Rfam assigns this 95-nucleotide RNA sequence from Cebus imitator to the family "Y RNA".
The literature on the family includes a 2007 paper in Theory Biosci by Mosig et al., "Evolution of the vertebrate Y RNA cluster".
The organism belongs to Cebus, within Eukaryota.
Y RNAs are components of the Ro ribonucleoprotein particle (Ro RNP), in association with Ro60 and La proteins.

RNA sequence: GGCUAGUCCGAUGGUAGUGGGUUAUCAGAAUUUAUUAACAUUAGUGUCGCUAAAGUUGGUAUACAACCCCCCGCUGCUAAAUUUCACUGGCUUAA
Numbered sequence: 001g002g003c004u005a006g007u008c009c010g011a012u013g014g015u016a017g018u019g020g021g022u023u024a025u026c027a028g029a030a031u032u033u034a035u036u037a038a039c040a041u042u043a044g045u046g047u048c049g050c051u052a053a054a055g056u057u058g059g060u061a062u063a064c065a066a067c068c069c070c071c072c073g074c075u076g077c078u079a080a081a082u083u084u085c086a087c088u089g090g091c092u093u094a095a
Base pairs, nucleotide, nucleotide: 001092002091003090004089005088006087007086010084011083015079016075017074018073019072020071021070033061034060035059037057038056